[Rfam]
RNA sequence: CACGCCAAGGAGCGUUGCAUUGAAAAAUUGUUUUCAAUCAGGCUUGGUAAAAUCAAAACGACGCUCAUUUUUU
Numbered sequence: 001c002a003c004g005c006c007a008a009g010g011a012g013c014g015u016u017g018c019a020u021u022g023a024a025a026a027a028u029u030g031u032u033u034u035c036a037a038u039c040a041g042g043c044u045u046g047g048u049a050a051a052a053u054c055a056a057a058a059c060g061a062c063g064c065u066c067a068u069u070u071u072u073u
Base pairs, nucleotide, nucleotide: 004048005047006046007045008044021037022035023034024033025032
RNA: SAH (S-adenosyl-L-homocysteine) riboswitch aptamer